RNA: mir-219 microRNA precursor family
RNA sequence: CUGGCUGCUGAUUGUCCAAACGCAAUUCUUGUGAAAUGUCAUAUCCAGCAGAAUUGUGCCUGGACAUCUGUUGCUGG
Numbered sequence: 001c002u003g004g005c006u007g008c009u010g011a012u013u014g015u016c017c018a019a020a021c022g023c024a025a026u027u028c029u030u031g032u033g034a035a036a037u038g039u040c041a042u043a044u045c046c047a048g049c050a051g052a053a054u055u056g057u058g059c060c061u062g063g064a065c066a067u068c069u070g071u072u073g074c075u076g077g
Base pairs, nucleotide, nucleotide: 002076003075004074005073007071010068011067012066014065015064016063017062018061021058022057023056024055025054026053027052028051029050031049